[Rfam]
RNA sequence: CUAUAAUGAUGGCAAUAGUUUUCAUCAACAGCAGUUCACCUAUUAAGUGUUGUUACUUUGGGUCUGAGUGA
Numbered sequence: 001c002u003a004u005a006a007u008g009a010u011g012g013c014a015a016u017a018g019u020u021u022u023c024a025u026c027a028a029c030a031g032c033a034g035u036u037c038a039c040c041u042a043u044u045a046a047g048u049g050u051u052g053u054u055a056c057u058u059u060g061g062g063u064c065u066g067a068g069u070g071a
Base pairs, nucleotide, nucleotide: 002070003069004068008026009025010024011023
A member of the RNA family "Small nucleolar RNA SNORD56" from Prolemur simus, 71 nucleotides long. Gene Ontology terms of the family: nucleolus and RNA processing. Lineage of the source: Eukaryota > Deuterostomia > Sarcopterygii > Boreoeutheria > Prolemur. A reference for the family is Galardi et al. (2002), "Purified box C/D snoRNPs are able to reproduce site-specific 2'-O-methylation of target RNA in vitro", Mol Cell Biol. The family's RNA type in Rfam is C/D-box small nucleolar RNA.